[Rfam]
A member of the RNA family "Plant signal recognition particle RNA" from Phoenix dactylifera, 310 nucleotides long. It scores 192 bits against the family's covariance model. The source organism's lineage runs through Eukaryota, Streptophytina, Tracheophyta, Spermatophyta and Phoenix.
RNA sequence: GCCGAGCUUCGUUGCGGGAGCUUGUAACCCGAGUGGGGGCAUUAAAGUUGUUUGGACGUUUGGUCGUGCCCCCGAGUACAGGCUCAGGUGGUGCGUAUGGAUCCGGCUAGCCCGUUCCAAGUUUGAUUAGUGAGAUGUGCGAUUUGAGCGAAGGCUUGGUUCGCGCAUCUCCUGAAGAGGAGGGAACAGCGUUAGGCUGGUAUCACAGAGCAGCGAACACCUCCCGCUCUCAACGGUGAAAGGACAGUUAGCCGCCGCCCCACUGACCCUCUUAGGCUCGCAGGCAGACCAAUUGCGGACGACCACUUUU
Numbered sequence: 001g002c003c004g005a006g007c008u009u010c011g012u013u014g015c016g017g018g019a020g021c022u023u024g025u026a027a028c029c030c031g032a033g034u035g036g037g038g039g040c041a042u043u044a045a046a047g048u049u050g051u052u053u054g055g056a057c058g059u060u061u062g063g064u065c066g067u068g069c070c071c072c073c074g075a076g077u078a079c080a081g082g083c084u085c086a087g088g089u090g091g092u093g094c095g096u097a098u099g100g101a102u103c104c105g106g107c108u109a110g111c112c113c114g115u116u117c118c119a120a121g122u123u124u125g126a127u128u129a130g131u132g133a134g135a136u137g138u139g140c141g142a143u144u145u146g147a148g149c150g151a152a153g154g155c156u157u158g159g160u161u162c163g164c165g166c167a168u169c170u171c172c173u174g175a176a177g178a179g180g181a182g183g184g185a186a187c188a189g190c191g192u193u194a195g196g197c198u199g200g201u202a203u204c205a206c207a208g209a210g211c212a213g214c215g216a217a218c219a220c221c222u223c224c225c226g227c228u229c230u231c232a233a234c235g236g237u238g239a240a241a242g243g244a245c246a247g248u249u250a251g252c253c254g255c256c257g258c259c260c261c262a263c264u265g266a267c268c269c270u271c272u273u274a275g276g277c278u279c280g281c282a283g284g285c286a287g288a289c290c291a292a293u294u295g296c297g298g299a300c301g302a303c304c305a306c307u308u309u310u
Stems, first nucleotide, its partner, number of pairs: 001040003004023007028037003044309005050303003054300001057297002061292001062290004069284002073280005081269002084266004091261001093260001095258001104254008112243002115241002118238002121234003125231001129228003132171011144159006172177001179224005190215003197208003
Dot-bracket structure: ((((((((((......)))))))....(((....))))))...(((((.(((.(..((..(((((...((..(((((...((.((((...(.(.(........((((((((((.((.((.(((.(...((((((((((((((.((((((....)))))).)))))))))))(....).(((((......(((....(((......)))....)))....))))).)))..))))..)).))))...))))))))...).)).)))).))......)))))..))..)))).)...))..)))).))))).